RNA sequence: GGCGAUAAACGGCGUCGAAAUAAGCUUUUCGGACCCGGGGGCGGUACCCGGCGCCUCCACCCGAGCGCAUUGGUCGCAGCUCUGCUCGAGCCUGCGAGCGGCGCGUUCCGGCGGGGGCGAAAUAGGUUCGACGGGAAGUGUAAAGGACGAUCUUUUGCCCGGCAUUGUACCGCCGUUAUCGGGCUAAACUUAUAGUUGCCAACGACAACUAUGCUCCGGUGGCCCUCGCCGCGUAA
Numbered sequence: 001g002g003c004g005a006u007a008a009a010c011g012g013c014g015u016c017g018a019a020a021u022a023a024g025c026u027u028u029u030c031g032g033a034c035c036c037g038g039g040g041g042c043g044g045u046a047c048c049c050g051g052c053g054c055c056u057c058c059a060c061c062c063g064a065g066c067g068c069a070u071u072g073g074u075c076g077c078a079g080c081u082c083u084g085c086u087c088g089a090g091c092c093u094g095c096g097a098g099c100g101g102c103g104c105g106u107u108c109c110g111g112c113g114g115g116g117g118c119g120a121a122a123u124a125g126g127u128u129c130g131a132c133g134g135g136a137a138g139u140g141u142a143a144a145g146g147a148c149g150a151u152c153u154u155u156u157g158c159c160c161g162g163c164a165u166u167g168u169a170c171c172g173c174c175g176u177u178a179u180c181g182g183g184c185u186a187a188a189c190u191u192a193u194a195g196u197u198g199c200c201a202a203c204g205a206c207a208a209c210u211a212u213g214c215u216c217c218g219g220u221g222g223c224c225c226u227c228g229c230c231g232c233g234u235a236a
Stems, first nucleotide, its partner, number of pairs: 001159005013149004025138003029134003035051005052119007160175004